[Rfam]
This 44-nucleotide RNA sequence from Paenibacillus sp. FSL R7-0331 belongs to the Rfam family "PreQ1 (pre queuosine) riboswitch aptamer". Lineage of the source: Bacteria > Bacillota > Bacilli > Caryophanales > Paenibacillus. The match comes from Rfam's covariance-model search (42 bits). For this family Rfam cites "A small RNA that cooperatively senses two stacked metabolites in one pocket for gene control" (Schroeder et al., Nat Commun, 2022). This family is a bacterial riboswitch that binds to the metabolite preQ1, an intermediate in the biosynthesis of the modified nucleoside queuosine from GTP. One example of this riboswitch is located in the leader of the Bacillus subtilis ykvJKLM (queCDEF) operon which encodes four genes necessary for queuosine production. PreQ1 binding to the riboswitch aptamer is thought to induce premature transcription termination within the leader to down-regulate expression of these genes. Pairs were carried over by alignment from the consensus structure.
RNA sequence: GCAGGAGAGGUUCGCGAACUCCCUCUAUAAAAAACUAUUUAGUA
Numbered sequence: 001g002c003a004g005g006a007g008a009g010g011u012u013c014g015c016g017a018a019c020u021c022c023c024u025c026u027a028u029a030a031a032a033a034a035c036u037a038u039u040u041a042g043u044a
Base pairs, nucleotide, nucleotide: 006026007025008024009023010022016036